[Rfam]
RNA sequence: GCGAUGAGCUAUUUUGCAUAAGACGAGCCAUAUGCCUCCGGGCUAAACGUUGAAUGUGGUCAACGGUGCUUCGCCGCAAAACGUACAUGAAAAAAAGUCGAUACCAAUUGGUAUCGACUUUU
Numbered sequence: 001g002c003g004a005u006g007a008g009c010u011a012u013u014u015u016g017c018a019u020a021a022g023a024c025g026a027g028c029c030a031u032a033u034g035c036c037u038c039c040g041g042g043c044u045a046a047a048c049g050u051u052g053a054a055u056g057u058g059g060u061c062a063a064c065g066g067u068g069c070u071u072c073g074c075c076g077c078a079a080a081a082c083g084u085a086c087a088u089g090a091a092a093a094a095a096a097g098u099c100g101a102u103a104c105c106a107a108u109u110g111g112u113a114u115c116g117a118c119u120u121u122u
Stems, first nucleotide, its partner, number of pairs: 014079004024073004029068003034043002048065002051062003093122013
A member of the RNA family "BsrF" from Natronobacillus azotifigens, 122 nucleotides long. Taxonomically the source falls in Natronobacillus (Bacteria, Bacillota, Bacilli, Caryophanales). Rfam classes the family as a small RNA. A reference for the family is Saito et al. (2008), "Novel small RNA-encoding genes in the intergenic regions of Bacillus subtilis", Gene.